[Rfam]
RNA sequence: AGCUAUGCUUGAGAAUGAGAGAGAGCACUUUUGUCCGCGCUCAUACAAAUGACAUGGUUGCAUACAGGAGUGCUCUCUCUUAGUGUCAUUCAAUC
Numbered sequence: 001a002g003c004u005a006u007g008c009u010u011g012a013g014a015a016u017g018a019g020a021g022a023g024a025g026c027a028c029u030u031u032u033g034u035c036c037g038c039g040c041u042c043a044u045a046c047a048a049a050u051g052a053c054a055u056g057g058u059u060g061c062a063u064a065c066a067g068g069a070g071u072g073c074u075c076u077c078u079c080u081u082a083g084u085g086u087c088a089u090u091c092a093a094u095c
Stems, first nucleotide, its partner, number of pairs: 010088003014084001016082002020078002023075001025073010
This 95-nucleotide RNA from Papaver somniferum belongs to the Rfam family "MIR535 microRNA precursor family". A search with the family's covariance model found it, with a score of 66 bits. On this family, see Zeng et al., Nucleic Acids Res 2010: "Conservation and divergence of microRNAs and their functions in Euphorbiaceous plants".